Background: The record is a 202-nucleotide RNA sequence from Medicago truncatula, which matches "MIR2619 microRNA precursor family" in Rfam.
[Rfam]
RNA sequence: AAACAGCCCCCUAUAUAUUGGAUCUUUGACAGUUUUGGCCUCCAAGGCCACUUUUGACUUAGUCUUCGCUGACGUGGCACCCACAAUGGUCGACACGUGGCACCUCACUUAAGGGAUGUGGGUGCCACGUCAGCGAAGAUUCAUUCAAAAGUGGCCUUGGGGGACAAAACUGUCAUAGAUCCAAAACAUAGGGGGGCUGUUU
Dot-bracket structure: ((.(((((...(((.(.((((((((.(((((((((((.(((((((..........................((.((((((((.....................................)))))))).))..........................))))))).))))))))))).)))))))).).)))....))))).))

The family's consensus secondary structure was predicted with RNAalifold. Taxonomically the source falls in Medicago (Eukaryota, Spermatophyta, Magnoliopsida, Gunneridae). Gene Ontology terms of the family: RISC complex and miRNA-mediated post-transcriptional gene silencing.